[Rfam]
A member of the RNA family "DsrA RNA" from Enterobacter sp. 638, 85 nucleotides long. About the family: DsrA RNA regulates both transcription, by overcoming transcriptional silencing by the nucleoid-associated H-NS protein, and translation, by promoting efficient translation of the stress sigma factor, RpoS. These two activities of DsrA can be separated by mutation: the first of three stem-loops of the 85 nucleotide RNA is necessary for RpoS translation but not for anti-H-NS action, while the second stem-loop is essential for antisilencing and less critical for RpoS translation. Pairs were carried over by alignment from the consensus structure, which is taken from published work. Lineage of the source: Bacteria > Pseudomonadati > Pseudomonadota > Enterobacteriaceae > Enterobacter. The family's RNA type in Rfam is small RNA. The literature on the family includes a 1995 paper in Proc Natl Acad Sci USA by Sledjeski and Gottesman, "A small RNA acts as an antisilencer of the H-NS-silenced rcsA gene of Escherichia coli".
RNA sequence: CCCACAUCAGAUUUCCUGGUGUAACGAAUUUACAAGUGCUUCUUGCAUAAGCAAGUUCAUCCCGGUCAUCCCCAUGGCCGGGAUU
Dot-bracket structure: ...(((((((.....)))))))...((((((..(.(((.....))).)..).)).))).(((((((.((....)).)))))))..